[Rfam]
Shown here is a 97-nucleotide RNA from Ahrensia marina, a member of the family "Bacterial small signal recognition particle RNA". Rfam's curators write: The signal recognition particle (SRP) is a universally conserved ribonucleoprotein involved in the co-translational targeting of proteins to membranes. Rfam classes the family as a non-coding RNA gene.

RNA sequence: GAAGGUUGGCUGUGGACGUGUCACUCGCCAACCGGGUCAGGUCCGGAAGGAAGCAGCCCUAACGAAUUCGACGCGGGUCACCUGUCCAGCCUUCCAC
Number, nucleotide and partner (000 for none) at each position: 001g000002a000003a000004g091005g090006u089007u088008g087009g000010c000011u000012g081013u080014g079015g000016a000017c075018g074019u073020g072021u071022c070023a067024c000025u065026c064027g063028c000029c000030a000031a000032c000033c000034g059035g058036g057037u056038c000039a000040g000041g000042u051043c050044c049045g000046g000047a000048a000049g044050g043051a042052a000053g000054c000055a000056g037057c036058c035059c034060u000061a000062a000063c027064g026065a025066a000067u023068u000069c000070g022071a021072c020073g019074c018075g017076g000077g000078u000079c014080a013081c012082c000083u000084g000085u000086c000087c008088a007089g006090c005091c004092u000093u000094c000095c000096a000097c000
Rfam links the family to the GO terms SRP-dependent cotranslational protein targeting to membrane, signal sequence recognition and signal recognition particle, plasma membrane targeting.